This 104-nucleotide RNA from Anaeromassilibacillus sp. An250 belongs to the Rfam family "azaaromatic riboswitch aptamer (yjdF RNA)".

RNA sequence: AGUGGCAAGGAUAAAAACACGGCGCGGUUGGUAGUCCGCGCGCCGGGGAUCUCCCGGCCAGUAACCCUCCCUCCCAUGGGUCGUCCGUUCUUUGCAGGAUUAUA
Numbered sequence: 001a002g003u004g005g006c007a008a009g010g011a012u013a014a015a016a017a018c019a020c021g022g023c024g025c026g027g028u029u030g031g032u033a034g035u036c037c038g039c040g041c042g043c044c045g046g047g048g049a050u051c052u053c054c055c056g057g058c059c060a061g062u063a064a065c066c067c068u069c070c071c072u073c074c075c076a077u078g079g080g081u082c083g084u085c086c087g088u089u090c091u092u093u094g095c096a097g098g099a100u101u102a103u104a
Stems, first nucleotide, its partner, number of pairs: 005095007022041006042058006069080003